About this RNA
c-di-AMP riboswitch aptamer (ydaO/yuaA leader): a 140-nucleotide sequence from Ornithinimicrobium ciconiae.
[Rfam]
RNA sequence: ACCGUCCGGGCGCCAGACGAGGAUGGGGAACCCACCAUCGACGCCCGCUGCGGCGUCUUGGGGUGAAGCCGCGUCAGCGGCCGGGCACCUGACCGCCCGAACCCGACAGCUAACUCCGUAGGCGCACUGUCAGGAAGGUU
Numbered sequence: 001a002c003c004g005u006c007c008g009g010g011c012g013c014c015a016g017a018c019g020a021g022g023a024u025g026g027g028g029a030a031c032c033c034a035c036c037a038u039c040g041a042c043g044c045c046c047g048c049u050g051c052g053g054c055g056u057c058u059u060g061g062g063g064u065g066a067a068g069c070c071g072c073g074u075c076a077g078c079g080g081c082c083g084g085g086c087a088c089c090u091g092a093c094c095g096c097c098c099g100a101a102c103c104c105g106a107c108a109g110c111u112a113a114c115u116c117c118g119u120a121g122g123c124g125c126a127c128u129g130u131c132a133g134g135a136a137g138g139u140u
Base pairs, nucleotide, nucleotide: 002022003021023119024118025117026116027115028114033060034059061104062103063102069080070079071078072077083098084097085096086095
Rfam links the family to the GO terms regulation of gene expression and cyclic-di-AMP binding.